The family of this 96-nucleotide sequence from Arenimonas fontis is "SAH (S-adenosyl-L-homocysteine) riboswitch aptamer".

RNA sequence: CCCACCGAGGGGCGCUGCAAGCCCGGCCCGUGCAAUGCGGAUCCGCCGGGAUCAGGCUCGGUCCGGGGUUUCCCGUAUCAACGGCGCCCGUUAACG
Numbered sequence: 001c002c003c004a005c006c007g008a009g010g011g012g013c014g015c016u017g018c019a020a021g022c023c024c025g026g027c028c029c030g031u032g033c034a035a036u037g038c039g040g041a042u043c044c045g046c047c048g049g050g051a052u053c054a055g056g057c058u059c060g061g062u063c064c065g066g067g068g069u070u071u072c073c074c075g076u077a078u079c080a081a082c083g084g085c086g087c088c089c090g091u092u093a094a095c096g
Stems, first nucleotide, its partner, number of pairs: 004062005022050005
Source information:
A search with the family's covariance model found it, with a score of 50 bits.